[Rfam]
RNA sequence: AUACUCGGUUUCUCUUCAUAUCGUACAAGUCUUUCGCCUUUUACUAAGACUUCCGUGGAGAGGAACACUAUUGAGUUCAACUUAUUUUUGGCAGGCUUAGCCUUGUAGCUGAGCC
Numbered sequence: 001a002u003a004c005u006c007g008g009u010u011u012c013u014c015u016u017c018a019u020a021u022c023g024u025a026c027a028a029g030u031c032u033u034u035c036g037c038c039u040u041u042u043a044c045u046a047a048g049a050c051u052u053c054c055g056u057g058g059a060g061a062g063g064a065a066c067a068c069u070a071u072u073g074a075g076u077u078c079a080a081c082u083u084a085u086u087u088u089u090g091g092c093a094g095g096c097u098u099a100g101c102c103u104u105g106u107a108g109c110u111g112a113g114c115c
Base pairs, nucleotide, nucleotide: 003076004075005074006073008066009065010064011063012062013061014060015059016058017057018056027052028051029050030049031048032047034046095114096113097112098111099110100109